[Rfam]
RNA sequence: GAAAAAUGAGGAGUGGUUUUUUUCUCGCUUUAUUAUGAGAGAAGAGCGUUUCGCUCCGUCUGUUACGACAAUCGAGCGCUCUCCUUUGUCCGUCAAUCUUUUUUC
Dot-bracket structure: ((((.........(.(.(...(((((..........))))).((((((((.........(.((.......)).))))))))).........).).).....))))
RNA: Small nucleolar RNA Z279/snoR105/snoR108